Streptococcus sRNA SSRC41: a 108-nucleotide sequence from Streptococcus pseudoporcinus. Taxonomically the source falls in Streptococcus pseudoporcinus (Bacteria, Bacillota, Bacilli, Lactobacillales). By type it is a small RNA.

RNA sequence: GCUCUAUUUAUGAGCUUUUUUUAUGUUCUAAUAACUAGAUUUCUUGUUAAUUAUCAAAAAAUAAGAUAUAAUAUAUGAUAGCACUUAGUUUAGAAAGAAGGUGUAAGU
Numbered sequence: 001g002c003u004c005u006a007u008u009u010a011u012g013a014g015c016u017u018u019u020u021u022u023a024u025g026u027u028c029u030a031a032u033a034a035c036u037a038g039a040u041u042u043c044u045u046g047u048u049a050a051u052u053a054u055c056a057a058a059a060a061a062u063a064a065g066a067u068a069u070a071a072u073a074u075a076u077g078a079u080a081g082c083a084c085u086u087a088g089u090u091u092a093g094a095a096a097g098a099a100g101g102u103g104u105a106a107g108u
Stems, first nucleotide, its partner, number of pairs: 003077001005075003013067001015065003019061004030048004081104006